The record is a 203-nucleotide sequence from Paenibacillus uliginis, which matches "c-di-AMP riboswitch aptamer (ydaO/yuaA leader)" in Rfam.
[Rfam]
Nucleotides: 203
Stems, first nucleotide, its partner, number of pairs: 011188004018038009039183006049100001101168003109142011145162004
Number, partner (000 for none) and nucleotide at each position: 001000u002000c003000u004000c005000a006000u007000g008000a009000a010000u011188c012187g013186c014185u015000g016000a017000a018038u019037u020036c021035c022034c023033u024032u025031g026030c027000u028000a029000g030026g031025c032024a033023a034022g035021g036020g037019a038018a039183a040182c041181g042180g043179g044178g045000g046000a047000a048000c049100c050000a051000a052000a053000c054000a055000a056000g057000g058000a059000g060000a061000u062000g063000c064000g065000c066000c067000a068000g069000g070000u071000g072000g073000u074000g075000u076000g077000a078000g079000a080000g081000c082000c083000g084000c085000c086000a087000u088000u089000g090000a091000a092000c093000a094000u095000c096000u097000c098000c099000a100049g101168g102167g103166g104000u105000g106000a107000a108000u109142c110141c111140u112139g113138a114137u115136c116135c117134g118133a119132a120000g121000a122000c123000u124000c125000c126000a127000u128000g129000a130000a131000a132119u133118u134117c135116g136115g137114a138113u139112c140111a141110g142109g143000u144000a145162g146161g147160g148159c149000g150000a151000c152000u153000c154000u155000c156000a157000c158000c159148g160147c161146c162145c163000g164000a165000a166103u167102c168101c169000g170000a171000c172000a173000g174000c175000u176000a177000a178044c179043c180042u181041c182040g183039u184000a185014a186013g187012c188011g189000u190000u191000g192000a193000g194000u195000u196000a197000a198000g199000c200000a201000g202000u203000c
The match comes from Rfam's covariance-model search (91 bits). The organism belongs to Paenibacillus uliginis, within Bacteria.